[Rfam]
RNA sequence: AAGAUUACUUCAAAUGGGAGCAUUGAUUAGUCCUAUUUAAUAAGUGCUUCUCUUUGGGGUAGUAGUA
Numbered sequence: 001a002a003g004a005u006u007a008c009u010u011c012a013a014a015u016g017g018g019a020g021c022a023u024u025g026a027u028u029a030g031u032c033c034u035a036u037u038u039a040a041u042a043a044g045u046g047c048u049u050c051u052c053u054u055u056g057g058g059g060u061a062g063u064a065g066u067a
Base pairs, nucleotide, nucleotide: 004063005062006061007060008059009058010057011056014054016052017051018050019048020047021046022045023044024043026041027040028039
RNA: miR-430 microRNA precursor family
Organism: Carassius auratus